[Rfam]
RNA sequence: GCAUCUGAAUCUUUCCCACUCCUUGCGAUGUAGUGCCGGACUGGGGACACAUGAUGCAACAGGAAAGCAGAGGAAAUCCAGACAGGCUCUUUCACUGUAUUGGGGUUUGUCUCUACACCUUUGCAACAUUU
Numbered sequence: 001g002c003a004u005c006u007g008a009a010u011c012u013u014u015c016c017c018a019c020u021c022c023u024u025g026c027g028a029u030g031u032a033g034u035g036c037c038g039g040a041c042u043g044g045g046g047a048c049a050c051a052u053g054a055u056g057c058a059a060c061a062g063g064a065a066a067g068c069a070g071a072g073g074a075a076a077u078c079c080a081g082a083c084a085g086g087c088u089c090u091u092u093c094a095c096u097g098u099a100u101u102g103g104g105g106u107u108u109g110u111c112u113c114u115a116c117a118c119c120u121u122u123g124c125a126a127c128a129u130u131u
Base pairs, nucleotide, nucleotide: 001057002056003055004054005053013047014046015045016044017043018042021039022038067124068123069122070121071120072119080112081111082110083109084108085107086106087105093103
RNA: Small nucleolar RNA SNORA55